RNA sequence: UCCAUCGUGAGGUGGAAUCUGAAGGAAGUCGGAGGCAAAAUCCCGGCUCGAUGAACAAGAACCGCAUACGAGGCUGAACUGAGAUGGACGAGUUUGCGAAACAAAACAAAGUCCAACACUACCCGAAUCUCAGACAGUAAAUGUGGCGAGUAUAUGGGAUGAAAGCGGUCGCU
Numbered sequence: 001u002c003c004a005u006c007g008u009g010a011g012g013u014g015g016a017a018u019c020u021g022a023a024g025g026a027a028g029u030c031g032g033a034g035g036c037a038a039a040a041u042c043c044c045g046g047c048u049c050g051a052u053g054a055a056c057a058a059g060a061a062c063c064g065c066a067u068a069c070g071a072g073g074c075u076g077a078a079c080u081g082a083g084a085u086g087g088a089c090g091a092g093u094u095u096g097c098g099a100a101a102c103a104a105a106a107c108a109a110a111g112u113c114c115a116a117c118a119c120u121a122c123c124c125g126a127a128u129c130u131c132a133g134a135c136a137g138u139a140a141a142u143g144u145g146g147c148g149a150g151u152a153u154a155u156g157g158g159a160u161g162a163a164a165g166c167g168g169u170c171g172c173u
Stems, first nucleotide, its partner, number of pairs: 001016006028173001030171003035166002040160006046151005062146006073138003079133006086114004092107004
RNA: Group II catalytic intron D1-D4-3